[Rfam]
RNA sequence: CGGGUGAUGCCGUCGGCGGCACGUUCCGUGCACCGGCUCUGGAGAACACGCGGACCACCUCGCGUGCCACCCGCUGCAAGCCGCCCUGCUGGCGUCAGAGCAGAGACAACGAUGACGCUG
Numbered sequence: 001c002g003g004g005u006g007a008u009g010c011c012g013u014c015g016g017c018g019g020c021a022c023g024u025u026c027c028g029u030g031c032a033c034c035g036g037c038u039c040u041g042g043a044g045a046a047c048a049c050g051c052g053g054a055c056c057a058c059c060u061c062g063c064g065u066g067c068c069a070c071c072c073g074c075u076g077c078a079a080g081c082c083g084c085c086c087u088g089c090u091g092g093c094g095u096c097a098g099a100g101c102a103g104a105g106a107c108a109a110c111g112a113u114g115a116c117g118c119u120g
Stems, first nucleotide, its partner, number of pairs: 015085006029078004034073003040069003047066007
This 120-nucleotide sequence from Streptomyces sp. DJ belongs to the Rfam family "gntR-DTE RNA". The match comes from Rfam's covariance-model search (101 bits). Taxonomically the source falls in Streptomyces (Bacteria, Bacillati, Actinomycetota, Streptomycetaceae).